[Rfam]
RNA sequence: GAGCUGUGAUGAUAUCUGAUGAAAGUCAUGCACCACUCUUACAAAUUUAUAAUUUGAGUGAUGACAAAUUUCUCAUACCCAUUUUACUUCUGAGCUC
Numbered sequence: 001g002a003g004c005u006g007u008g009a010u011g012a013u014a015u016c017u018g019a020u021g022a023a024a025g026u027c028a029u030g031c032a033c034c035a036c037u038c039u040u041a042c043a044a045a046u047u048u049a050u051a052a053u054u055u056g057a058g059u060g061a062u063g064a065c066a067a068a069u070u071u072c073u074c075a076u077a078c079c080c081a082u083u084u085u086a087c088u089u090c091u092g093a094g095c096u097c
Stems, first nucleotide, its partner, number of pairs: 001097004
Dot-bracket structure: ((((.........................................................................................))))
RNA: Small nucleolar RNA Z221/R21b
Organism: Anisodus acutangulus